[Rfam]
Nucleotides: 100
Base pairs, nucleotide, nucleotide: 004094005093006092007091009086010085011084012083013082014081015077018075019074020073021072023068024067025066026065027064028063034059035058036057042051043050044049
Number, partner (000 for none) and nucleotide at each position: 001000a002000a003000u004094c005093g006092g007091g008000u009086c010085c011084u012083g013082c014081g015077c016000g017000g018075c019074a020073g021072a022000u023068g024067u025066u026065u027064g028063u029000g030000a031000a032000c033000u034059c035058c036057g037000c038000u039000a040000g041000g042051u043050c044049c045000g046000u047000g048000a049044g050043g051042a052000a053000g054000c055000a056000a057036c058035g059034g060000u061000a062000a063028a064027u065026g066025g067024a068023c069000c070000u071000c072021u073020c074019u075018g076000g077015g078000u079000g080000a081014c082013g083012u084011g085010g086009g087000g088000g089000u090000u091007c092006c093005u094004g095000a096000u097000u098000g099000c100000g